[Rfam]
RNA sequence: UCGUGAGGUAGAGGCGCGAUACUUAACAGUUUUAUAUGGAGCCAUGAGCUGGCUGUGAAAUAUAAGAGAAGGAAAUAUCGCCGAAGUGUUGUAAAUGCUCAAUUUUACAAUGCUGGGUCUGCAGUGAACAAUUGCAGAACUGUCUCAAUCAUCUAUAUCCCUGAUGGUUGAGUUGUGCUAUCUCAAAA
Numbered sequence: 001u002c003g004u005g006a007g008g009u010a011g012a013g014g015c016g017c018g019a020u021a022c023u024u025a026a027c028a029g030u031u032u033u034a035u036a037u038g039g040a041g042c043c044a045u046g047a048g049c050u051g052g053c054u055g056u057g058a059a060a061u062a063u064a065a066g067a068g069a070a071g072g073a074a075a076u077a078u079c080g081c082c083g084a085a086g087u088g089u090u091g092u093a094a095a096u097g098c099u100c101a102a103u104u105u106u107a108c109a110a111u112g113c114u115g116g117g118u119c120u121g122c123a124g125u126g127a128a129c130a131a132u133u134g135c136a137g138a139a140c141u142g143u144c145u146c147a148a149u150c151a152u153c154u155a156u157a158u159c160c161c162u163g164a165u166g167g168u169u170g171a172g173u174u175g176u177g178c179u180a181u182c183u184c185a186a187a188a
Base pairs, nucleotide, nucleotide: 006183007182008181009180010179011178016081017080018079019078020077021076023074024073031066032065033064034063035062036061037060085114086113087112088111089110090109091108092107093106094105095104115141116140118138119137120136121135122134123133124132125131144172145171146170147169148168149167150166151165152164153163